The family of this 69-nucleotide RNA from Astyanax mexicanus is "mir-24 microRNA precursor family".
The base pairs follow the family's consensus structure, which was predicted with RNAalifold.
Taxonomically the source falls in Astyanax (Eukaryota, Neopterygii, Ostariophysi, Otophysi).
Gene Ontology terms of the family: RISC complex and miRNA-mediated post-transcriptional gene silencing.
About the family: This family represents the microRNA (miRNA) mir-24 family. miRNAs are transcribed as ~70nt precursors (modelled here) and subsequently processed by the Dicer enzyme to give a ~22nt product.
RNA sequence: GUCUCCCGUGCCUGCUGUGCUGAUAAUCAGUGUCUGUUUCCAGCUGGCUCAGUUCAGCAGGAACAGGGG
Numbered sequence: 001g002u003c004u005c006c007c008g009u010g011c012c013u014g015c016u017g018u019g020c021u022g023a024u025a026a027u028c029a030g031u032g033u034c035u036g037u038u039u040c041c042a043g044c045u046g047g048c049u050c051a052g053u054u055c056a057g058c059a060g061g062a063a064c065a066g067g068g069g
Stems, first nucleotide, its partner, number of pairs: 003069004008064002011061003015057003019053005027047005